[Rfam]
RNA sequence: AUGUCCUGCCUUUCAGGCAUCCUCUCCUAAAACUUUCCAAGGCCGCCCUACGGGGCGGCCCUUUUUUUUGCGUCCA
Numbered sequence: 001a002u003g004u005c006c007u008g009c010c011u012u013u014c015a016g017g018c019a020u021c022c023u024c025u026c027c028u029a030a031a032a033c034u035u036u037c038c039a040a041g042g043c044c045g046c047c048c049u050a051c052g053g054g055g056c057g058g059c060c061c062u063u064u065u066u067u068u069u070g071c072g073u074c075c076a
Stems, first nucleotide, its partner, number of pairs: 008018004041060008
Shown here is a 76-nucleotide sequence from Sphingomonas sp. JC676, a member of the family "Makes More Granules Regulator RNA (mmgR)". The source organism's lineage runs through Bacteria, Alphaproteobacteria, Sphingomonadales, Sphingomonadaceae and Sphingomonas. A search with the family's covariance model found it, with a score of 50 bits. Rfam links the family to the GO terms protein binding, response to nitrogen compound and DNA-templated transcription, termination. Rfam describes the family as follows. SuhB later renamed mmgR (makes more granules regulator) was a putative non-coding RNA found multiple times in the Agrobacterium tumefaciens genome and related alpha-proteobacteria. Other non-coding RNAs uncovered in the same analysis include: speF, ybhL, metA, and serC.Several studies inSinorhizobium meliloti showed that suhB element is indeed a non-coding RNA:firstly it was detected on Northern blot and called Sm8RNA, secondly in an RNAseq study referred to as SmelC689.The mutant phenotype's (strain lacking the small RNA) cytoplasm contains higher content of polyhydroxybutyrate (PBH)storage granules than wild type strain. The sRNA is required to limit the PBH intracellular accumulation when the nitrogen-fixing Sinorhizobium meliloti is under condition of surplus carbon in relation to nitrogen. It has been renamed to mmgR. Further study confirmed that mmgR fine-tunes the regulation of PBH storage.Northern blot confirmed the expression of the sRNA in other rhizobia species. MmgR homologues were found in most alpha-proteobacteria. The family's RNA type in Rfam is small RNA.